[Rfam]
RNA: Streptococcus sRNA Spd-sr37
Organism: Streptococcus anginosus
RNA sequence: CAAUAACUAUGAUGGUCAAAGCUCAUGGAUGUUGCAGGCUUUUUGUCCUGCACUUCUAGAGGUUU
Number, nucleotide and partner (000 for none) at each position: 001c000002a000003a000004u000005a000006a000007c000008u000009a000010u000011g000012a000013u000014g000015g000016u000017c000018a000019a065020a064021g063022c062023u000024c061025a000026u000027g000028g000029a000030u000031g000032u000033u052034g051035c050036a049037g048038g047039c000040u000041u000042u000043u000044u000045g000046u000047c038048c037049u036050g035051c034052a033053c000054u000055u000056c000057u000058a000059g000060a000061g024062g022063u021064u020065u019